[Rfam]
RNA sequence: UGCGACUCCAUUAAUGGUGUAGUCCCCCAAGCACGGAGUACUUUACCAUAUUCCGAAUUC
Numbered sequence: 001u002g003c004g005a006c007u008c009c010a011u012u013a014a015u016g017g018u019g020u021a022g023u024c025c026c027c028c029a030a031g032c033a034c035g036g037a038g039u040a041c042u043u044u045a046c047c048a049u050a051u052u053c054c055g056a057a058u059u060c
Stems, first nucleotide, its partner, number of pairs: 016044002019041003023037003
Plastid-psbN 5UTR RNA: a 60-nucleotide sequence from Musa balbisiana. Plastid psbN is a non-coding RNA (ncRNA) recognised in plastids. It was reported as a conserved 11 stem-loop in the prime untranslated region (5UTR) of psbN genes. On this family, see Richter et al., Plant Commun 2023: "Retrograde signaling in plants: A critical review focusing on the GUN pathway and beyond". The match comes from Rfam's covariance-model search (50 bits). By type it is a cis-regulatory element.